[Rfam]
RNA sequence: AAGUAUUGGAGUAUAUGGGGAUAAAUAUCCGACAUUCAACGACCAGAACAUGCGAAAAAAAAUGGGAGAUAAAUCUCCCAUUUCAGACUGGU
Number, nucleotide and partner (000 for none) at each position: 001a000002a000003g000004u000005a000006u000007u000008g000009g000010a036011g035012u034013a000014u000015a000016u032017g000018g030019g029020g028021a000022u000023a000024a000025a000026u000027a000028u020029c019030c018031g000032a016033c000034a012035u011036u010037c000038a000039a000040c000041g000042a000043c000044c000045a000046g000047a000048a000049c000050a000051u000052g000053c000054g000055a000056a000057a000058a000059a000060a083061a082062a081063u080064g079065g078066g077067a076068g075069a074070u000071a000072a000073a000074u069075c068076u067077c066078c065079c064080a063081u062082u061083u060084c000085a000086g000087a000088c000089u000090g000091g000092u000
The record is a 92-nucleotide RNA from Candidatus Symbiopectobacterium sp. Dall1.0, which matches "sraA" in Rfam. The literature on the family includes a 2001 paper in Curr Biol by Argaman et al., "Novel small RNA-encoding genes in the intergenic regions of Escherichia coli".